This 63-nucleotide sequence from Plasticicumulans lactativorans belongs to the Rfam family "Fluoride riboswitch aptamer (crcB RNA motif)". The family has 289 seed sequences and 2,293 matches in Rfam 15.1. NCBI's taxonomy places the organism under Bacteria, Pseudomonadota, Gammaproteobacteria, Candidatus Competibacteraceae, Plasticicumulans. The literature on the family includes a 2012 paper in Nature by Ren et al., "Fluoride ion encapsulation by Mg2+ ions and phosphates in a fluoride riboswitch".

[Rfam]
RNA sequence: GUAAAGACAGGAGAUGGCAUUCCUCCUCGAACCGCCCUCGUGGCUGAUGAUGCCUACACGCGU
Dot-bracket structure: .........[[[[..((((((.]]]].......(((.....)))....)))))).........